A member of the RNA family "Bacterial small signal recognition particle RNA" from Gracilinema caldarium, 99 nucleotides long.
The literature on the family includes a 2003 paper in Nucleic Acids Res by Rosenblad et al., "SRPDB: Signal Recognition Particle Database".
The family's RNA type in Rfam is non-coding RNA gene.
Lineage of the source: Bacteria > Spirochaetia > Breznakiellaceae > Gracilinema > Gracilinema caldarium.
A search with the family's covariance model found it, with a score of 67 bits.
From the family's description: The signal recognition particle (SRP) is a universally conserved ribonucleoprotein involved in the co-translational targeting of proteins to membranes.
The base pairs follow the family's consensus structure, which is taken from published work.
RNA sequence: CAUCAGGAAUCAUGCGAAAAAACACUGCCCAACCCCGCCAGGUCCGGAAGGAAGCAACGGUAAGUAGCUGUUUUUUGCGCCGUGACCAUCCUGGUGGCG
Dot-bracket structure: ...(((((.((((((.((((((..((((......(((.....(((....))).....)))...))))...)))))))...)))))...)))))......